This 130-nucleotide RNA sequence from Strigops habroptila belongs to the Rfam family "Small nucleolar RNA SNORA1".

RNA sequence: UGCCACGUUAUUCAACAAAUAGACACAACUCACUGUGUCUGAAUUGAAAAAUGUGGCUAGAAAAGGAACAGGUUGUGCUUUCCUCACUAUAUAGUUAAUUGUAGUGGUGACAAUGAGACCUGUAACAGGU
Numbered sequence: 001u002g003c004c005a006c007g008u009u010a011u012u013c014a015a016c017a018a019a020u021a022g023a024c025a026c027a028a029c030u031c032a033c034u035g036u037g038u039c040u041g042a043a044u045u046g047a048a049a050a051a052u053g054u055g056g057c058u059a060g061a062a063a064a065g066g067a068a069c070a071g072g073u074u075g076u077g078c079u080u081u082c083c084u085c086a087c088u089a090u091a092u093a094g095u096u097a098a099u100u101g102u103a104g105u106g107g108u109g110a111c112a113a114u115g116a117g118a119c120c121u122g123u124a125a126c127a128g129g130u
Base pairs, nucleotide, nucleotide: 002057003056004055006053007052008051021040022039023038024037025036026035027034068123069122070121071120072119082109084107085106086105087104
Annotation
Rfam classes the family as an H/ACA-box small nucleolar RNA. Taxonomically the source falls in Strigops (Eukaryota, Gnathostomata, Aves, Psittacidae). Pairs were carried over by alignment from the consensus structure, which was predicted with PFOLD. It scores 95 bits against the family's covariance model. ACA1 is a member of the H/ACA class of snoRNA that guide the sites of modification of uridines to pseudouridines.